[Rfam]
Rfam assigns this 350-nucleotide sequence from Donghicola tyrosinivorans to the family "Alphaproteobacteria transfer-messenger RNA".
RNA sequence: CCUCUUGAAACCCCGUGGAAAGUUCGUAGGUUAGGCACGUCGGGCAACCGACUAUGGACAUAAACGCGCUCGUAAUAAGCGGAUCGGACCCGGGGGCGGUACCCGGCGGCUCCACCAAAAAUCCUAUCGUUUGGGAUCAUGGGGCCGAAAUAGGAUCGACGAACGUCUAAAGGGGUUUGCUUUGUCCCGGUGUGAUACCGCCGUUAUCGGUUCAAACAGUACAAUUGCAAACGACAAUCGUGCUCCGGUAGCAAUGGCUGCGUAAGCAGUCGGAGUUUCCGAAAUCUAAGUCCUUGCGCCUAGCAGUGUAAGGCGGGGUUCGCAGGUACCUGGCAACAGAAACCUGCACU
Numbered sequence: 001c002c003u004c005u006u007g008a009a010a011c012c013c014c015g016u017g018g019a020a021a022g023u024u025c026g027u028a029g030g031u032u033a034g035g036c037a038c039g040u041c042g043g044g045c046a047a048c049c050g051a052c053u054a055u056g057g058a059c060a061u062a063a064a065c066g067c068g069c070u071c072g073u074a075a076u077a078a079g080c081g082g083a084u085c086g087g088a089c090c091c092g093g094g095g096g097c098g099g100u101a102c103c104c105g106g107c108g109g110c111u112c113c114a115c116c117a118a119a120a121a122u123c124c125u126a127u128c129g130u131u132u133g134g135g136a137u138c139a140u141g142g143g144g145c146c147g148a149a150a151u152a153g154g155a156u157c158g159a160c161g162a163a164c165g166u167c168u169a170a171a172g173g174g175g176u177u178u179g180c181u182u183u184g185u186c187c188c189g190g191u192g193u194g195a196u197a198c199c200g201c202c203g204u205u206a207u208c209g210g211u212u213c214a215a216a217c218a219g220u221a222c223a224a225u226u227g228c229a230a231a232c233g234a235c236a237a238u239c240g241u242g243c244u245c246c247g248g249u250a251g252c253a254a255u256g257g258c259u260g261c262g263u264a265a266g267c268a269g270u271c272g273g274a275g276u277u278u279c280c281g282a283a284a285u286c287u288a289a290g291u292c293c294u295u296g297c298g299c300c301u302a303g304c305a306g307u308g309u310a311a312g313g314c315g316g317g318g319u320u321c322g323c324a325g326g327u328a329c330c331u332g333g334c335a336a337c338a339g340a341a342a343c344c345u346g347c348a349c350u
Stems, first nucleotide, its partner, number of pairs: 039052005056187005066180002068176004080165002084162003090106005107147007188203004193214003197211003316331004322347006

Bacterial tmRNA, also known as 10Sa RNA or SsrA, is named for its dual tRNA and mRNA-like properties. Its role is to liberate the mRNA from a stalled ribosome. The family's RNA type in Rfam is non-coding RNA gene. Pairs were carried over by alignment from the consensus structure, which is taken from published work. The match comes from Rfam's covariance-model search (312 bits).